[Rfam]
RNA sequence: AGAUGUGAGGGCGAUCUGGCUGCAACAUCUGUCGCCCUAUUGAUCACCAGGGUUGAUUUGGCUGAUCUGCCUGGCUAGGCGGGUGUCCCCCUCCUCCCUCACCGAUCCAUGUGCAUCCCUCCCAAAGCUGCCCGCUUGGUGGAAGAGGAUGACCUUCCCCACAGAGGAGAAGACCGGUAUUCGGUCAAGGGUUUAGGAGUAGCUGUGCUCCCCUGCUAGAACCUCCAAACAAGCUCUCAAGGUCCAUUUGUAGGAGAACAUAGGGUAGUCAAGCUUCCAAGACUCCAAACACAUUCAAAUGAGGCGCUGCAUGUGGUAGUCUGCCUUUCUUG
Numbered sequence: 001a002g003a004u005g006u007g008a009g010g011g012c013g014a015u016c017u018g019g020c021u022g023c024a025a026c027a028u029c030u031g032u033c034g035c036c037c038u039a040u041u042g043a044u045c046a047c048c049a050g051g052g053u054u055g056a057u058u059u060g061g062c063u064g065a066u067c068u069g070c071c072u073g074g075c076u077a078g079g080c081g082g083g084u085g086u087c088c089c090c091c092u093c094c095u096c097c098c099u100c101a102c103c104g105a106u107c108c109a110u111g112u113g114c115a116u117c118c119c120u121c122c123c124a125a126a127g128c129u130g131c132c133c134g135c136u137u138g139g140u141g142g143a144a145g146a147g148g149a150u151g152a153c154c155u156u157c158c159c160c161a162c163a164g165a166g167g168a169g170a171a172g173a174c175c176g177g178u179a180u181u182c183g184g185u186c187a188a189g190g191g192u193u194u195a196g197g198a199g200u201a202g203c204u205g206u207g208c209u210c211c212c213c214u215g216c217u218a219g220a221a222c223c224u225c226c227a228a229a230c231a232a233g234c235u236c237u238c239a240a241g242g243u244c245c246a247u248u249u250g251u252a253g254g255a256g257a258a259c260a261u262a263g264g265g266u267a268g269u270c271a272a273g274c275u276u277c278c279a280a281g282a283c284u285c286c287a288a289a290c291a292c293a294u295u296c297a298a299a300u301g302a303g304g305c306g307c308u309g310c311a312u313g314u315g316g317u318a319g320u321c322u323g324c325c326u327u328u329c330u331u332g
Stems, first nucleotide, its partner, number of pairs: 002107002005102007013093002018090002025086009035074002038069002042067004047061002116170002118167004122139004127135002140161003147157003202274003208268002211265005223256004229251005298331002301327005306320005

The record is a 332-nucleotide sequence from Myotis myotis, which matches "7SK RNA" in Rfam. The family's consensus secondary structure is taken from published work. The match comes from Rfam's covariance-model search (327 bits). Rfam 15.1 lists 49,373 matches to the family in 668 species. Rfam's curators write: 7SK was discovered as an abundant small nuclear RNA in the mid-70s but a possible function has only recently been suggested.